[Rfam]
RNA sequence: CCCAGAUAAAUGGGUUGGAGUCUGAUAAACUCGUACAUUGCGUGUUGUCAUCAGCUUCUUCUCUUGUUUAUUACGAGAAUGGAGUUAAAUAACAGCACUAAAUAA
Dot-bracket structure: .........................................((((((.....((((((.((((...........))))..))))))......)))))).......
Numbered sequence: 001c002c003c004a005g006a007u008a009a010a011u012g013g014g015u016u017g018g019a020g021u022c023u024g025a026u027a028a029a030c031u032c033g034u035a036c037a038u039u040g041c042g043u044g045u046u047g048u049c050a051u052c053a054g055c056u057u058c059u060u061c062u063c064u065u066g067u068u069u070a071u072u073a074c075g076a077g078a079a080u081g082g083a084g085u086u087a088a089a090u091a092a093c094a095g096c097a098c099u100a101a102a103u104a105a
Stems, first nucleotide, its partner, number of pairs: 042098006053086006060078004